Annotation: The record is a 116-nucleotide RNA sequence from Mesorhizobium sp. Root554, which matches "TPP riboswitch aptamer (THI element)" in Rfam. Lineage of the source: Bacteria > Pseudomonadota > Alphaproteobacteria > Phyllobacteriaceae > Mesorhizobium.

[Rfam]
RNA sequence: AUCGCUCUAACGGGGUGCCGACCGCAAUCUUUUUGCGGCUGCUGAGAGGUUUUCGAACCAACCCGUCGAACCUGAUCCGGCUUGCACCGGCGGAGGGAUUUAGACGCUAGCCAAAG
Numbered sequence: 001a002u003c004g005c006u007c008u009a010a011c012g013g014g015g016u017g018c019c020g021a022c023c024g025c026a027a028u029c030u031u032u033u034u035g036c037g038g039c040u041g042c043u044g045a046g047a048g049g050u051u052u053u054c055g056a057a058c059c060a061a062c063c064c065g066u067c068g069a070a071c072c073u074g075a076u077c078c079g080g081c082u083u084g085c086a087c088c089g090g091c092g093g094a095g096g097g098a099u100u101u102a103g104a105c106g107c108u109a110g111c112c113a114a115a116g
Stems, first nucleotide, its partner, number of pairs: 006104005011065004017042002020039001049058003071096003077090004